[Rfam]
RNA sequence: GGCCUCAAGUGAUGGAACAAUGACCAGGGAGGACUGUGACCGAACUAGGAUGUGUUCGUACUGUCUGAUGGGGCC
Number, nucleotide and partner (000 for none) at each position: 001g075002g074003c073004c072005u071006c070007a069008a000009g000010u000011g065012a064013u063014g062015g061016a000017a059018c058019a056020a055021u054022g053023a000024c049025c048026a000027g046028g045029g000030a000031g000032g041033a000034c000035u000036g000037u000038g000039a000040c000041c032042g000043a000044a000045c028046u027047a000048g025049g024050a000051u000052g000053u022054g021055u020056u019057c000058g018059u017060a000061c015062u014063g013064u012065c011066u000067g000068a000069u007070g006071g005072g004073g003074c002075c001